[Rfam]
RNA: Small nucleolar RNA SNORD111
RNA sequence: UGGCCUGAAAUGAUGUUCUGAGUUCAUGUCUCUUCUCUGAGAUGUAUCUUGAAGACAGACGGAUGCGUUUCUGAUCAGGCUU
Numbered sequence: 001u002g003g004c005c006u007g008a009a010a011u012g013a014u015g016u017u018c019u020g021a022g023u024u025c026a027u028g029u030c031u032c033u034u035c036u037c038u039g040a041g042a043u044g045u046a047u048c049u050u051g052a053a054g055a056c057a058g059a060c061g062g063a064u065g066c067g068u069u070u071c072u073g074a075u076c077a078g079g080c081u082u
Base pairs, nucleotide, nucleotide: 002081003080004079005078